RNA sequence: AUGCAUAUGCAUACAAGCAUGCAUAUGCAUACAAGCAUGCAUAUGCAUACAAGCAUGCAUAUGCAUACAUGAAUGCAUAUGCAUACAUGAAUGCAUAUGCAUACAAGCAUGCAUAUGCAUACAAGCAUGCAUAUGCAUGCUUGUAUGCAUACAUGAAAGCAUAUGCAUUCAUGCGUGCAUAUGCAUUCAUUUAUGCAUAUGCAUUCAUGCGUGCAUAUGCAUACA
Numbered sequence: 001a002u003g004c005a006u007a008u009g010c011a012u013a014c015a016a017g018c019a020u021g022c023a024u025a026u027g028c029a030u031a032c033a034a035g036c037a038u039g040c041a042u043a044u045g046c047a048u049a050c051a052a053g054c055a056u057g058c059a060u061a062u063g064c065a066u067a068c069a070u071g072a073a074u075g076c077a078u079a080u081g082c083a084u085a086c087a088u089g090a091a092u093g094c095a096u097a098u099g100c101a102u103a104c105a106a107g108c109a110u111g112c113a114u115a116u117g118c119a120u121a122c123a124a125g126c127a128u129g130c131a132u133a134u135g136c137a138u139g140c141u142u143g144u145a146u147g148c149a150u151a152c153a154u155g156a157a158a159g160c161a162u163a164u165g166c167a168u169u170c171a172u173g174c175g176u177g178c179a180u181a182u183g184c185a186u187u188c189a190u191u192u193a194u195g196c197a198u199a200u201g202c203a204u205u206c207a208u209g210c211g212u213g214c215a216u217a218u219g220c221a222u223a224c225a
Stems, first nucleotide, its partner, number of pairs: 001030011038221007045160002048157001050155002053086001055084007107152001109150004114145002117140004122135001161182008
RNA: Listeria sRNA rliA